Rfam assigns this 98-nucleotide RNA sequence from Nomascus leucogenys to the family "Y RNA". The organism belongs to Nomascus, within Eukaryota. Pairs were carried over by alignment from the consensus structure, which is taken from published work. A reference for the family is Chen et al. (2000), "Ro ribonucleoproteins contribute to the resistance of Deinococcus radiodurans to ultraviolet irradiation", Genes Dev. It scores 41 bits against the family's covariance model.
[Rfam]
RNA sequence: UGCUGCUCCGAGUGUAGUGGUGUUUAUAACUCAGUGAUCACAGCCAGUUACAGAUUUGUUCCUCUCCCACUCCCACUGCAUUACUUGACUAGAAAGAA
Numbered sequence: 001u002g003c004u005g006c007u008c009c010g011a012g013u014g015u016a017g018u019g020g021u022g023u024u025u026a027u028a029a030c031u032c033a034g035u036g037a038u039c040a041c042a043g044c045c046a047g048u049u050a051c052a053g054a055u056u057u058g059u060u061c062c063u064c065u066c067c068c069a070c071u072c073c074c075a076c077u078g079c080a081u082u083a084c085u086u087g088a089c090u091a092g093a094a095a096g097a098a
Stems, first nucleotide, its partner, number of pairs: 001094001003092003007088002010086002014082001016077005022072001028060003033055001
Dot-bracket structure: (.(((.((.((..(.(((((.(.....(((..(.....................)..)))...........))))))....)..)))).))).)....